This 78-nucleotide RNA sequence from Alligator mississippiensis belongs to the Rfam family "Mammalian CPEB3 ribozyme". The family has 14 seed sequences and 5,706 matches in Rfam 15.1. Its family is annotated with RNA nuclease activity in the Gene Ontology. The base pairs follow the family's consensus structure, which is taken from published work.
[Rfam]
RNA sequence: AGAGGUUGAAGUUUGAGGCCAUAGCAGAAGUGCUUACGGCACGGCCCAUCGGAUCCCAGCAAAUCUGCAAAUUCUGCU
Numbered sequence: 001a002g003a004g005g006u007u008g009a010a011g012u013u014u015g016a017g018g019c020c021a022u023a024g025c026a027g028a029a030g031u032g033c034u035u036a037c038g039g040c041a042c043g044g045c046c047c048a049u050c051g052g053a054u055c056c057c058a059g060c061a062a063a064u065c066u067g068c069a070a071a072u073u074c075u076g077c078u
Base pairs, nucleotide, nucleotide: 017046018045019044020043023078024077025076026075027074028073029072030042031041032040050067051066052065053064054063